This 70-nucleotide sequence from Rodentolepis nana belongs to the Rfam family "HDV ribozyme from F. prausnitzii". A reference for the family is Webb et al. (2009), "Widespread occurrence of self-cleaving ribozymes", Science. The base pairs follow the family's consensus structure, which is taken from published work. It scores 47 bits against the family's covariance model.
RNA sequence: GGUGUGCGAUAGACUUACCUCCUCGUGGUGCACCCUGGGCAACGUAUAUUCAUACGGCAAAAAUGUGGUG
Numbered sequence: 001g002g003u004g005u006g007c008g009a010u011a012g013a014c015u016u017a018c019c020u021c022c023u024c025g026u027g028g029u030g031c032a033c034c035c036u037g038g039g040c041a042a043c044g045u046a047u048a049u050u051c052a053u054a055c056g057g058c059a060a061a062a063a064u065g066u067g068g069u070g
Stems, first nucleotide, its partner, number of pairs: 001036002004033004017029003043056005